[Rfam]
RNA sequence: GCACUGGAUGGGGGUUACGCCGUUGUGACCCAGAGCCAUUAGCUGAAGGAGAGCGAUGUCAGGCAAAUGGACAGUGU
Numbered sequence: 001g002c003a004c005u006g007g008a009u010g011g012g013g014g015u016u017a018c019g020c021c022g023u024u025g026u027g028a029c030c031c032a033g034a035g036c037c038a039u040u041a042g043c044u045g046a047a048g049g050a051g052a053g054c055g056a057u058g059u060c061a062g063g064c065a066a067a068u069g070g071a072c073a074g075u076g077u
Stems, first nucleotide, its partner, number of pairs: 001077006009032004037069004042064003
Rfam assigns this 77-nucleotide RNA sequence from Chroococcidiopsis thermalis to the family "CyVA-1 RNA".
About the family: Cyanobacteria, Acidobacteria (1 example), Verrucomicrobia (1 example).
The source organism's lineage runs through Bacteria, Bacillati, Cyanophyceae, Chroococcidiopsidaceae and Chroococcidiopsis thermalis.
The sequence is in the family's curated seed alignment.
The base pairs follow the family's consensus structure, which is taken from published work.